The record is a 102-nucleotide RNA from Paenibacillus lutimineralis, which matches "Purine riboswitch aptamer" in Rfam. The source organism's lineage runs through Bacteria, Bacillota, Bacilli, Caryophanales and Paenibacillus. The family's consensus secondary structure is taken from published work. Riboswitches are metabolite binding domains within certain messenger RNAs that serve as precision sensors for their corresponding targets. Its family is annotated with purine nucleobase biosynthetic process in the Gene Ontology.
RNA sequence: AAAUUUUGUGGAAUAAUUGCUCGUAUAACCUUGGGAAUAUGGCCCGGGAGUCUCUACCCGAUUACCUUAAAUAGUCGGACUACGAGUGAAUACGUCAUUAGG
Numbered sequence: 001a002a003a004u005u006u007u008g009u010g011g012a013a014u015a016a017u018u019g020c021u022c023g024u025a026u027a028a029c030c031u032u033g034g035g036a037a038u039a040u041g042g043c044c045c046g047g048g049a050g051u052c053u054c055u056a057c058c059c060g061a062u063u064a065c066c067u068u069a070a071a072u073a074g075u076c077g078g079a080c081u082a083c084g085a086g087u088g089a090a091u092a093c094g095u096c097a098u099u100a101g102g
Stems, first nucleotide, its partner, number of pairs: 018088008030048006058078007